The record is an 85-nucleotide RNA sequence, which matches "RAGATH-28 RNA" in Rfam.
[Rfam]
RNA sequence: AGGCGGUUGAUUCGUCCCGCCUGGGGAGGCCGGUGGAAAUACAGUGCAAAAGAACCGGGCUGAACAGCAGGCUGGGUGGCGAAGC
Numbered sequence: 001a002g003g004c005g006g007u008u009g010a011u012u013c014g015u016c017c018c019g020c021c022u023g024g025g026g027a028g029g030c031c032g033g034u035g036g037a038a039a040u041a042c043a044g045u046g047c048a049a050a051a052g053a054a055c056c057g058g059g060c061u062g063a064a065c066a067g068c069a070g071g072c073u074g075g076g077u078g079g080c081g082a083a084g085c
Stems, first nucleotide, its partner, number of pairs: 001022006055075004060070003

The family's RNA type in Rfam is small RNA.